Annotation:
This 69-nucleotide sequence from Alloprevotella sp. oral taxon 473 belongs to the Rfam family "Bacteroidetes FopS (family of paralogous sRNAs)". The family's RNA type in Rfam is small RNA.

Nucleotides: 069
Stems, first nucleotide, its partner, number of pairs: 040057007
Number, partner (000 for none) and nucleotide at each position: 001000u002000u003000g004000u005000u006000u007000u008000c009000a010000u011000g012000g013000u014000a015000u016000u017000a018000g019000a020000u021000u022000u023000a024000a025000g026000g027000u028000u029000a030000a031000a032000a033000g034000a035000a036000g037000a038000u039000u040057g041056g042055u043054u044053g045052u046051c047000g048000g049000g050000a051046g052045a053044c054043a055042a056041u057040c058000a059000a060000u061000u062000u063000u064000u065000a066000u067000u068000u069000u

Record summary:
The match comes from Rfam's covariance-model search (68 bits). Pairs were carried over by alignment from the consensus structure, which is taken from published work. The RNA-binding protein RbpB and BTncRNA_FopS sRNA are involved in the post-transcription regulation of polysaccharide utilisation loci (PUL).